RNA sequence: UCUCUCUGGAGAGGGGCGCUUUCUCUUCCUUCUAACCCUAAUUCAGUGCUUCGACAGCAGCCCUCCAUUGGGUAUACUCGCUGUUUUUCUAGCUAACUUUCAGCGAGCAGAGAGAGCUUAGUCCAGGGAGAAAAAAAUGUUAGCUGGGGAACGUCCCUUUCCCGAGAGCCCGCGCCGUCCUUUCUGUCUUGGGCCGUUGGCUAUAGCCCCCGGCCUCCCUCGCUGUUUAGGCCGCGAUCAGCCCGGGCCCUGGCUUUGGCAGGGGUUCCAAUGCUGCCGCGAAGAGUUCGCCUCUGUUAGCCUUGAGGUGGCCGGGAUGGAAUUGGCGGGCUCACGGAGGCGCGCGGGAAAGAGCAAAUGGUGAACUGGGCGCCUGUUGAGGUCGCGUCCCUGAGGUAUGGGAAGUGCGAUAUGUGCGCUUGUUCAAACACAU
Numbered sequence: 001u002c003u004c005u006c007u008g009g010a011g012a013g014g015g016g017c018g019c020u021u022u023c024u025c026u027u028c029c030u031u032c033u034a035a036c037c038c039u040a041a042u043u044c045a046g047u048g049c050u051u052c053g054a055c056a057g058c059a060g061c062c063c064u065c066c067a068u069u070g071g072g073u074a075u076a077c078u079c080g081c082u083g084u085u086u087u088u089c090u091a092g093c094u095a096a097c098u099u100u101c102a103g104c105g106a107g108c109a110g111a112g113a114g115a116g117c118u119u120a121g122u123c124c125a126g127g128g129a130g131a132a133a134a135a136a137a138u139g140u141u142a143g144c145u146g147g148g149g150a151a152c153g154u155c156c157c158u159u160u161c162c163c164g165a166g167a168g169c170c171c172g173c174g175c176c177g178u179c180c181u182u183u184c185u186g187u188c189u190u191g192g193g194c195c196g197u198u199g200g201c202u203a204u205a206g207c208c209c210c211c212g213g214c215c216u217c218c219c220u221c222g223c224u225g226u227u228u229a230g231g232c233c234g235c236g237a238u239c240a241g242c243c244c245g246g247g248c249c250c251u252g253g254c255u256u257u258g259g260c261a262g263g264g265g266u267u268c269c270a271a272u273g274c275u276g277c278c279g280c281g282a283a284g285a286g287u288u289c290g291c292c293u294c295u296g297u298u299a300g301c302c303u304u305g306a307g308g309u310g311g312c313c314g315g316g317a318u319g320g321a322a323u324u325g326g327c328g329g330g331c332u333c334a335c336g337g338a339g340g341c342g343c344g345c346g347g348g349a350a351a352g353a354g355c356a357a358a359u360g361g362u363g364a365a366c367u368g369g370g371c372g373c374c375u376g377u378u379g380a381g382g383u384c385g386c387g388u389c390c391c392u393g394a395g396g397u398a399u400g401g402g403a404a405g406u407g408c409g410a411u412a413u414g415u416g417c418g419c420u421u422g423u424u425c426a427a428a429c430a431c432a433u
Base pairs, nucleotide, nucleotide: 005165006164008162009161010160011159012158013157014156015155016154017153018152020151021150022149023148060117061116063114064113075109077107078106079105080104081103082102083101092144093143094142095141096140097139098137099136100135169348170347171346172345173344174343175342191333192332193331194330195329196327197326198325199324209316210315211314212313213312214311215310218308219307220306221305222304233281234280235279236278239276240275241274242273245269246268247267283295284294285293286292363425364424365423366422368420369419373414383410384409385408386407387406388403389402390401391400
Shown here is a 433-nucleotide sequence from Microcaecilia unicolor, a member of the family "Vertebrate telomerase RNA". Lineage of the source: Eukaryota > Metazoa > Teleostomi > Gymnophiona > Microcaecilia. The literature on the family includes a 2000 paper in Cell by Chen et al., "Secondary structure of vertebrate telomerase RNA". Telomerase is a ribonucleoprotein reverse transcriptase that synthesises telomeric DNA. Telomerase RNAs differ greatly in sequence and structure between vertebrates, ciliates and yeasts, but they share a 5' pseudoknot structure close to the template sequence. Vertebrate telomerase RNAs have a 3' H/ACA snoRNA-like domain. The family's RNA type in Rfam is non-coding RNA gene. Its family is annotated with telomerase activity, telomere maintenance via telomerase and telomerase catalytic core complex in the Gene Ontology.